[Rfam]
The family of this 106-nucleotide sequence from Saimiri boliviensis is "Y RNA". The organism belongs to Saimiri boliviensis, within Eukaryota. Y RNAs are components of the Ro ribonucleoprotein particle (Ro RNP), in association with Ro60 and La proteins. The Y RNAs and Ro60 and La proteins are well conserved, but the function of the Ro RNP is not known. In humans the RNA component can be one of four small RNAs -- hY1, hY3, hY4 and hY5. These small RNAs are predicted to fold into a conserved secondary structure containing three stem structures. The largest of the four, hY1, contains an additional hairpin. This family includes a significant number of annotated pseudogenes and the model is expected to discriminate poorly between real and Y RNA related pseudogenes.
RNA sequence: GCCUGGUCCAAAGAUAAUCAGUUAUCUAAACUGGUUGUUCAGUUACUGACUGAACUCCUUGUUCUAUUCUUUUCCCCUUCUCACUACAAUACUUGACUAGUCUUCA
Numbered sequence: 001g002c003c004u005g006g007u008c009c010a011a012a013g014a015u016a017a018u019c020a021g022u023u024a025u026c027u028a029a030a031c032u033g034g035u036u037g038u039u040c041a042g043u044u045a046c047u048g049a050c051u052g053a054a055c056u057c058c059u060u061g062u063u064c065u066a067u068u069c070u071u072u073u074c075c076c077c078u079u080c081u082c083a084c085u086a087c088a089a090u091a092c093u094u095g096a097c098u099a100g101u102c103u104u105c106a
Stems, first nucleotide, its partner, number of pairs: 001102001003100006010094002014090002016085001018083001020081002037069001041065002